[Rfam]
Nucleotides: 115
Stems, first nucleotide, its partner, number of pairs: 001079004009038001011037006021030002039066003044062003048057002082104005088099004
Number, partner (000 for none) and nucleotide at each position: 001079g002078g003077u004076c005000a006000u007000g008000a009038g010000u011037g012036u013035c014034a015033g016032c017000g018000c019000g020000a021030a022029g023000c024000c025000c026000c027000g028000g029022c030021u031000c032016g033015c034014u035013g036012a037011c038009c039066g040065g041064c042000a043000a044062c045061c046060c047000u048057c049056c050000a051000a052000c053000c054000g055000c056049g057048g058000u059000g060046g061045g062044g063000u064041g065040c066039c067000c068000c069000g070000g071000g072000u073000g074000a075000g076004g077003a078002c079001c080000u081000g082104g083103c084102g085101g086100c087000a088099c089098g090097u091096c092000g093000a094000c095000c096091g097090g098089c099088g100086g101085c102084c103083g104082c105000a106000a107000g108000c109000a110000c111000g112000g113000c114000u115000a
Description
This 115-nucleotide sequence from Knoellia remsis belongs to the Rfam family "SAM (S-adenosyl methionine) riboswitch aptamer". A reference for the family is Weinberg et al. (2008), "The aptamer core of SAM-IV riboswitches mimics the ligand-binding site of SAM-I riboswitches", RNA. Lineage of the source: Bacteria > Actinomycetes > Micrococcales > Intrasporangiaceae > Knoellia. SAM-IV is a mRNA element that regulates gene expression via direct sensing of S-adenosylmethionine (SAM or AdoMet). SAM-IV riboswitches share conserved nucleotide positions with the previously described SAM-I riboswitches sequence analysis and molecular recognition experiments suggest that SAM-I and SAM-IV riboswitches share similar ligand binding sites, but have different scaffolds. A search with the family's covariance model found it, with a score of 108 bits.